[Rfam]
RNA sequence: GCUGGCAUAAUGAUGAUGACCCUUUGCCGUUUACCCAGCUGAGUUCUGUGAUGAAUAAUGUUCUAUCUGAUGUGCCAGC
Number, nucleotide and partner (000 for none) at each position: 001g079002c078003u077004g076005g075006c074007a073008u000009a000010a000011u000012g000013a000014u000015g000016a000017u000018g000019a000020c000021c000022c000023u000024u000025u000026g000027c000028c000029g000030u000031u000032u000033a000034c000035c000036c000037a000038g000039c000040u000041g000042a000043g000044u000045u000046c000047u000048g000049u000050g000051a000052u000053g000054a000055a000056u000057a000058a000059u000060g000061u000062u000063c000064u000065a000066u000067c000068u000069g000070a000071u000072g000073u007074g006075c005076c004077a003078g002079c001
RNA: Small nucleolar RNA SNORD87
Organism: Acanthisitta chloris